[Rfam]
RNA sequence: GUGACCGUAGCGGGAGAGCUCCGUCGCAGCCGGCGACGGGCACCGAAGGAGCAAGCCUCCCCGCCAAUCUCUCAGGUAGCCGUACCGCCCCGGUCGG
Dot-bracket structure: .....((..((((......((((((.........)))))).(((((..(((...((......))....))))).))).......))))..)).....
Numbered sequence: 001g002u003g004a005c006c007g008u009a010g011c012g013g014g015a016g017a018g019c020u021c022c023g024u025c026g027c028a029g030c031c032g033g034c035g036a037c038g039g040g041c042a043c044c045g046a047a048g049g050a051g052c053a054a055g056c057c058u059c060c061c062c063g064c065c066a067a068u069c070u071c072u073c074a075g076g077u078a079g080c081c082g083u084a085c086c087g088c089c090c091c092g093g094u095c096g097g
Stems, first nucleotide, its partner, number of pairs: 006092002010088004020040006042077003045073002049071003055064002
Glycine riboswitch aptamer: a 97-nucleotide RNA sequence from Microbacterium ginsengisoli.
Its family is annotated with glycine biosynthetic process in the Gene Ontology.
Taxonomically the source falls in Microbacterium (Bacteria, Bacillati, Actinomycetes, Micrococcales).